[Rfam]
The record is a 70-nucleotide sequence, which matches "Hepatitis C virus stem-loop VII" in Rfam. It is one of the family's seed sequences.

Nucleotides: 070
Stems, first nucleotide, its partner, number of pairs: 006065002009062001013058003017050005026040005
Number, partner (000 for none) and nucleotide at each position: 001000c002000g003000c004000c005000c006065u007064c008000u009062u010000a011000c012000g013058u014057c015056a016000a017050g018049g019048a020047g021046g022000a023000a024000g025000g026040g027039c028038c029037g030036c031000u032000a033000u034000a035000u036030g037029c038028g039027g040026c041000a042000a043000a044000u045000a046021c047020c048019u049018c050017u051000u052000u053000a054000a055000c056015u057014g058013g059000g060000c061000a062009g063000u064007g065006a066000g067000g068000a069000c070000c
Rfam classes the family as a cis-regulatory element.